[Rfam]
RNA: Small nucleolar RNA SNORA61
RNA sequence: UCCCUCCGCAUCCCUUUCCCAUCAGAUCUGAAUACCGAUCUCGUGGUCGAAAAAGGAGGAAAAGCAACGUUCAGGCUGGUCUCAGCCUCUGCUGGUGCAGUGCUGCAGGGAGAGGGGCCAGUCGGAAGACAGC
Numbered sequence: 001u002c003c004c005u006c007c008g009c010a011u012c013c014c015u016u017u018c019c020c021a022u023c024a025g026a027u028c029u030g031a032a033u034a035c036c037g038a039u040c041u042c043g044u045g046g047u048c049g050a051a052a053a054a055g056g057a058g059g060a061a062a063a064g065c066a067a068c069g070u071u072c073a074g075g076c077u078g079g080u081c082u083c084a085g086c087c088u089c090u091g092c093u094g095g096u097g098c099a100g101u102g103c104u105g106c107a108g109g110g111a112g113a114g115g116g117g118c119c120a121g122u123c124g125g126a127a128g129a130c131a132g133c
Stems, first nucleotide, its partner, number of pairs: 003059005019046003023043001025040004076121007